Manganese Mn2+ riboswitch aptamer (yybP-ykoY): a 172-nucleotide RNA from Xanthomonas campestris. The base pairs follow the family's consensus structure. Taxonomically the source falls in Xanthomonas campestris pv. campestris (Bacteria, Pseudomonadota, Gammaproteobacteria, Xanthomonas campestris). Gene Ontology term of the family: manganese ion binding.

RNA sequence: CCCCCUUGGGGAGUAGCCUGCUUCCAGUCGAUGGAAGCGCCCGCAUCAACAUACUCGGCCGUUGCGCCGUGGUGCGGGCAACCACUCUUGGUUUGGCGAGACCAGCGGCAUGCGUGCACAACGAUGGUUGGGCGCGGGCGCAUGCCGUUGUGAUCGUGCCCAACCCGAGGUU
Numbered sequence: 001c002c003c004c005c006u007u008g009g010g011g012a013g014u015a016g017c018c019u020g021c022u023u024c025c026a027g028u029c030g031a032u033g034g035a036a037g038c039g040c041c042c043g044c045a046u047c048a049a050c051a052u053a054c055u056c057g058g059c060c061g062u063u064g065c066g067c068c069g070u071g072g073u074g075c076g077g078g079c080a081a082c083c084a085c086u087c088u089u090g091g092u093u094u095g096g097c098g099a100g101a102c103c104a105g106c107g108g109c110a111u112g113c114g115u116g117c118a119c120a121a122c123g124a125u126g127g128u129u130g131g132g133c134g135c136g137g138g139c140g141c142a143u144g145c146c147g148u149u150g151u152g153a154u155c156g157u158g159c160c161c162a163a164c165c166c167g168a169g170g171u172u
Base pairs, nucleotide, nucleotide: 020038021037022036039079040078041077042076043075044074045073046072047071048070056069057068058067059066080172081171082170083169085167